Source information:
This 90-nucleotide sequence from Paenibacillus sp. 32O-W belongs to the Rfam family "c-di-GMP-I riboswitch aptamer". The family's consensus secondary structure is taken from published work. The organism belongs to Paenibacillus, within Bacteria.

RNA sequence: CUUGGAUAAUGGCAAACCUGUUCGAAAGGCAGGGACGCAAAGCCACGGGUCUUCUGCAUAAUAUUAUGCAAUGAUAGCCGGGUUACCCUA
Numbered sequence: 001c002u003u004g005g006a007u008a009a010u011g012g013c014a015a016a017c018c019u020g021u022u023c024g025a026a027a028g029g030c031a032g033g034g035a036c037g038c039a040a041a042g043c044c045a046c047g048g049g050u051c052u053u054c055u056g057c058a059u060a061a062u063a064u065u066a067u068g069c070a071a072u073g074a075u076a077g078c079c080g081g082g083u084u085a086c087c088c089u090a
Stems, first nucleotide, its partner, number of pairs: 012038002017033004022029002041084004046080003049075003056069004